The record is an 88-nucleotide RNA, which matches "freshwater-2 RNA" in Rfam. The base pairs follow the family's consensus structure, which is taken from published work. Rfam classes the family as a cis-regulatory element.
RNA sequence: UUUUACAUAAAGUAAAAGACUUAUAGCGGAUAACCACCGCGUAGCCAGGAGAACUGGCAUUGGACUCCUAUAAAGGAGAAAACAAAUG
Numbered sequence: 001u002u003u004u005a006c007a008u009a010a011a012g013u014a015a016a017a018g019a020c021u022u023a024u025a026g027c028g029g030a031u032a033a034c035c036a037c038c039g040c041g042u043a044g045c046c047a048g049g050a051g052a053a054c055u056g057g058c059a060u061u062g063g064a065c066u067c068c069u070a071u072a073a074a075g076g077a078g079a080a081a082a083c084a085a086a087u088g
Stems, first nucleotide, its partner, number of pairs: 001017006022043003026040004044058004